This 149-nucleotide sequence from Peribacillus saganii belongs to the Rfam family "Manganese Mn2+ riboswitch aptamer (yybP-ykoY)".
A search with the family's covariance model found it, with a score of 49 bits.
RNA sequence: UUCCUUUACAAAGGGGAGUAGCGUUAGGGUUCGCCCUAAAACAAAGUCGUCAUUCCAUGGACAUACCAUCCAUCGGCUUUGUUGGCAUGAAAAGUGCUCAGCAAGACCUUUGCCUAUUGGCAGGGGUCUUUUUCUAUGUGCCUUAUGCU
Numbered sequence: 001u002u003c004c005u006u007u008a009c010a011a012a013g014g015g016g017a018g019u020a021g022c023g024u025u026a027g028g029g030u031u032c033g034c035c036c037u038a039a040a041a042c043a044a045a046g047u048c049g050u051c052a053u054u055c056c057a058u059g060g061a062c063a064u065a066c067c068a069u070c071c072a073u074c075g076g077c078u079u080u081g082u083u084g085g086c087a088u089g090a091a092a093a094g095u096g097c098u099c100a101g102c103a104a105g106a107c108c109u110u111u112g113c114c115u116a117u118u119g120g121c122a123g124g125g126g127u128c129u130u131u132u133u134c135u136a137u138g139u140g141c142c143u144u145a146u147g148c149u
Base pairs, nucleotide, nucleotide: 025038026037027036040083041082042081043080044079045078046077047076048075049074057073058072059071060070061069084149085148086147087146088145089144090143